[Rfam]
The record is a 74-nucleotide RNA from Notothenia coriiceps, which matches "tRNA" in Rfam. About the family: Transfer RNA (tRNA) molecules are approximately 80 nucleotides in length. Their secondary structure includes four short double-helical elements and three loops (D, anti-codon, and T loops). Further hydrogen bonds mediate the characteristic L-shaped molecular structure. tRNAs have two regions of fundamental functional importance: the anti-codon, which is responsible for specific mRNA codon recognition, and the 3' end, to which the tRNAs corresponding amino acid is attached (by aminoacyl-tRNA synthetases). tRNAs cope with the degeneracy of the genetic code in two manners: having more than one tRNA (with a specific anti-codon) for a particular amino acid; and 'wobble' base-pairing, i.e. permitting non-standard base-pairing at the 3rd anti-codon position.
RNA sequence: GGCGCUGUGGCUUAGUUGGUGAAAGCACCUGUCUUGUAAACAGGAGAUCCUGGGUUCAAAUCCCAGCAGUGCCU
Numbered sequence: 001g002g003c004g005c006u007g008u009g010g011c012u013u014a015g016u017u018g019g020u021g022a023a024a025g026c027a028c029c030u031g032u033c034u035u036g037u038a039a040a041c042a043g044g045a046g047a048u049c050c051u052g053g054g055u056u057c058a059a060a061u062c063c064c065a066g067c068a069g070u071g072c073c074u
Stems, first nucleotide, its partner, number of pairs: 001073007010026004028044005050066005
The base pairs follow the family's consensus structure, which is taken from published work.